A member of the RNA family "mir-156 microRNA precursor family" from Populus trichocarpa, 85 nucleotides long. The match comes from Rfam's covariance-model search (66 bits). The organism belongs to Populus, within Eukaryota. Rfam 15.1 lists 1,401 matches to the family in 221 species. A reference for the family is Ambros (2001), "microRNAs: tiny regulators with great potential", Cell.
RNA sequence: CUGACAGAAGAGAGUGAGCACACACGAAAGCUAAUUGUAUGAAAGCAUACCAUUGCAGGGUGUGUGCUCACUUCUCUUCUGUCAG
Number, nucleotide and partner (000 for none) at each position: 001c085002u084003g083004a082005c081006a080007g079008a078009a077010g076011a075012g074013a072014g071015u070016g069017a068018g067019c066020a065021c064022a000023c062024a061025c060026g000027a000028a000029a000030g000031c000032u000033a000034a000035u000036u000037g000038u000039a000040u000041g000042a000043a000044a000045g000046c000047a000048u000049a000050c000051c000052a000053u000054u000055g000056c000057a000058g000059g000060g025061u024062g023063u000064g021065u020066g019067c018068u017069c016070a015071c014072u013073u000074c012075u011076c010077u009078u008079c007080u006081g005082u004083c003084a002085g001